The record is a 76-nucleotide RNA from Pipistrellus kuhlii, which matches "mir-9229 microRNA precursor family" in Rfam.
RNA sequence: GGGACACGCUUAUGGGGCAGGACUUGUUUCGGUGGGGGUUUGGUGCUCACUGAGUCUGCCUUUUGAAUGUGUUCCU
Dot-bracket structure: (((((((..(((.((((((.(((.....(((((((((......).))))))))))))))))).)))..))))))).

The organism belongs to Pipistrellus, within Eukaryota.